[Rfam]
RNA sequence: UUGUUCCUUUUUCCUAUGCACAUACGUCUUUGAGAAUUCAAUGUAAAGAGGUAUAGUGCAUGGGAAAAUGGGGCAA
Numbered sequence: 001u002u003g004u005u006c007c008u009u010u011u012u013c014c015u016a017u018g019c020a021c022a023u024a025c026g027u028c029u030u031u032g033a034g035a036a037u038u039c040a041a042u043g044u045a046a047a048g049a050g051g052u053a054u055a056g057u058g059c060a061u062g063g064g065a066a067a068a069u070g071g072g073g074c075a076a
Base pairs, nucleotide, nucleotide: 010067011066012065013064014063015062016061017060018059019058022054023053025051027049028048029047030046031045032044
Dot-bracket structure: .........((((((((((..((.(.((((((...........)))))).).))...)))))))))).........